[Rfam]
RNA sequence: GUCGUUCUUGUCUACGGGAGCAUAGUGUUCAAUGAUCGUAAAGUGAGAGUACUGAUGCUAUAAAACCCAUAUGAAUUAUAUGACUGCAUCCGUGUGUAGGGUUGCCUGUACACGUGUUGCAAUUUUUGAAGGG
Numbered sequence: 001g002u003c004g005u006u007c008u009u010g011u012c013u014a015c016g017g018g019a020g021c022a023u024a025g026u027g028u029u030c031a032a033u034g035a036u037c038g039u040a041a042a043g044u045g046a047g048a049g050u051a052c053u054g055a056u057g058c059u060a061u062a063a064a065a066c067c068c069a070u071a072u073g074a075a076u077u078a079u080a081u082g083a084c085u086g087c088a089u090c091c092g093u094g095u096g097u098a099g100g101g102u103u104g105c106c107u108g109u110a111c112a113c114g115u116g117u118u119g120c121a122a123u124u125u126u127u128g129a130a131g132g133g
Stems, first nucleotide, its partner, number of pairs: 005019004020058004024053007037043001086120003090116001091114001095110006
The family of this 133-nucleotide RNA sequence from Cotesia typhae is "U4atac minor spliceosomal RNA". The family's RNA type in Rfam is spliceosomal small nuclear RNA. Rfam links the family to the GO terms mRNA 5'-splice site recognition, pre-mRNA 5'-splice site binding and U4atac snRNP. It scores 68 bits against the family's covariance model. The family is grouped with related families in Rfam's "U4 clan". The base pairs follow the family's consensus structure, which is taken from published work. On this family, see Lorkovic et al., RNA 2005: "Evolutionary conservation of minor U12-type spliceosome between plants and humans". The family has 61 seed sequences and 1,648 matches in Rfam 15.1.